[Rfam]
RNA sequence: UGCCUCAUUCUGGAUUGGAAUGGGCCCUGUUGACUGGUGUCCAGAGUGGGUCAGUGUGGCUAAAAUUGAGACCCAGGUCACGCUUCCAUCACAGUGAACAUUUACAGUGGUGACAAGGAGGCCGGUAAUAUUU
Numbered sequence: 001u002g003c004c005u006c007a008u009u010c011u012g013g014a015u016u017g018g019a020a021u022g023g024g025c026c027c028u029g030u031u032g033a034c035u036g037g038u039g040u041c042c043a044g045a046g047u048g049g050g051u052c053a054g055u056g057u058g059g060c061u062a063a064a065a066u067u068g069a070g071a072c073c074c075a076g077g078u079c080a081c082g083c084u085u086c087c088a089u090c091a092c093a094g095u096g097a098a099c100a101u102u103u104a105c106a107g108u109g110g111u112g113a114c115a116a117g118g119a120g121g122c123c124g125g126u127a128a129u130a131u132u133u
Stems, first nucleotide, its partner, number of pairs: 002060003006056003021043005027037001074125001076123002087112006
RNA: Small nucleolar RNA SNORA1